[Rfam]
RNA sequence: ACGCCGUCUCGAGCGGCGUACGCGGCCUGAACGGGCCUGUGUGGCGGGGGUGGUGCCGUGUCGGCGCAGCACCACCCCCGUGCC
Numbered sequence: 001a002c003g004c005c006g007u008c009u010c011g012a013g014c015g016g017c018g019u020a021c022g023c024g025g026c027c028u029g030a031a032c033g034g035g036c037c038u039g040u041g042u043g044g045c046g047g048g049g050g051u052g053g054u055g056c057c058g059u060g061u062c063g064g065c066g067c068a069g070c071a072c073c074a075c076c077c078c079c080g081u082g083c084c
Stems, first nucleotide, its partner, number of pairs: 001019007020042006026035003044081013058067003

A member of the RNA family "Streptomyces RNA 6106" from Streptomyces sp. SID5910, 84 nucleotides long. A reference for the family is Vockenhuber et al. (2011), "Deep sequencing-based identification of small non-coding RNAs in Streptomyces coelicolor", RNA Biol. It scores 95 bits against the family's covariance model. From the family's description: Identified by deep sequencing of transcriptome at the end of exponential growth phase. Appears smaller on northern blot than sequencing transcript. The family's RNA type in Rfam is small RNA. The base pairs follow the family's consensus structure.